[Rfam]
RNA sequence: AUUUCGCGCAGCAUUUUGACUCGUAUAUACUCGGGAAUAAGGCUCGAGCGUAUCUACCCGGGAACCUUAAAUUACCGGACUACGAGCGGAUGACGAAGAGAU
Dot-bracket structure: ...................((((((....((((((.......)))))).........((((.((.......)).))))..))))))................
A member of the RNA family "Purine riboswitch aptamer" from Paenibacillus curdlanolyticus, 102 nucleotides long. The family's consensus secondary structure is taken from published work. Rfam describes the family as follows. Riboswitches are metabolite binding domains within certain messenger RNAs that serve as precision sensors for their corresponding targets. Allosteric rearrangement of mRNA structure is mediated by ligand binding, and this results in modulation of gene expression. A class of riboswitches that selectively recognises guanine and becomes saturated at concentrations as low as 5 nM. In Bacillus subtilis, this mRNA motif is located on at least five separate transcriptional units that together encode 17 genes that are mostly involved in purine transport and purine nucleotide biosynthesis. It has also been shown that some members of this family are specific for adenine instead. Hence this family are termed purine riboswitches.